[Rfam]
RNA sequence: GCAAGACAGGUGAGAAUCCUGUCCACCGUAAGACUAAGGUUUCCUGGGGAAGGCUCGUCCACCCAGGGUUAGUCGGGACCUAAGCCGAGGCCGAAAGGCGUAGGCGAUGGAUAACAGGUUGAAAUUCCUGUACUAGUCAUUUGCGUUCGACCGAUGGAGGGACGCAGGAGGCAAGAGGAACCGCACGAUUGGAAAGGUGCGGCCAAGCAAUGCGCCGGGACUGGAGUGAAAGGCUUCAGGCCAACGGCCAGUUGUGAUGGGGAGCGAAUUUAAGUAGCGAAGUCCUUGCGGUCACACUGCCAAGAAAAGCUUCUAGGGAGCAAAUGAUUACCCGUACCGCAAACCGACACAGGUAGUCGAGGAGAGUAUCCUCAGGUGAG
Numbered sequence: 001g002c003a004a005g006a007c008a009g010g011u012g013a014g015a016a017u018c019c020u021g022u023c024c025a026c027c028g029u030a031a032g033a034c035u036a037a038g039g040u041u042u043c044c045u046g047g048g049g050a051a052g053g054c055u056c057g058u059c060c061a062c063c064c065a066g067g068g069u070u071a072g073u074c075g076g077g078a079c080c081u082a083a084g085c086c087g088a089g090g091c092c093g094a095a096a097g098g099c100g101u102a103g104g105c106g107a108u109g110g111a112u113a114a115c116a117g118g119u120u121g122a123a124a125u126u127c128c129u130g131u132a133c134u135a136g137u138c139a140u141u142u143g144c145g146u147u148c149g150a151c152c153g154a155u156g157g158a159g160g161g162a163c164g165c166a167g168g169a170g171g172c173a174a175g176a177g178g179a180a181c182c183g184c185a186c187g188a189u190u191g192g193a194a195a196g197g198u199g200c201g202g203c204c205a206a207g208c209a210a211u212g213c214g215c216c217g218g219g220a221c222u223g224g225a226g227u228g229a230a231a232g233g234c235u236u237c238a239g240g241c242c243a244a245c246g247g248c249c250a251g252u253u254g255u256g257a258u259g260g261g262g263a264g265c266g267a268a269u270u271u272a273a274g275u276a277g278c279g280a281a282g283u284c285c286u287u288g289c290g291g292u293c294a295c296a297c298u299g300c301c302a303a304g305a306a307a308a309g310c311u312u313c314u315a316g317g318g319a320g321c322a323a324a325u326g327a328u329u330a331c332c333c334g335u336a337c338c339g340c341a342a343a344c345c346g347a348c349a350c351a352g353g354u355a356g357u358c359g360a361g362g363a364g365a366g367u368a369u370c371c372u373c374a375g376g377u378g379a380g
Base pairs, nucleotide, nucleotide: 005023006022007021008020009019010018024378025377026376027375032358033357034356035355038338039337043067044066045065046064047063048062052060053059074334075333076332077331079110080109084105085104086103088101090099091098092097114131115130116129117128118127134330135329136328137327138326139325140324141323142322143321144320151318152317156313157312158311159310164300165299166298167297170293171292172291175287176286177285178284179283181202182201183200184199185198186197203260204259207255208254209253210252214248215247216246219241221239222238223237224236225235226234227233264278265277267275344353345352360372361371362370363369
The record is a 380-nucleotide part of an RNA from Loigolactobacillus rennini, which matches "Bacterial large subunit ribosomal RNA" in Rfam. The organism belongs to Loigolactobacillus rennini, within Bacteria. On this family, see Yusupov et al., Science 2001: "Crystal structure of the ribosome at 5.5 A resolution". Pairs were carried over by alignment from the consensus structure, which is taken from published work.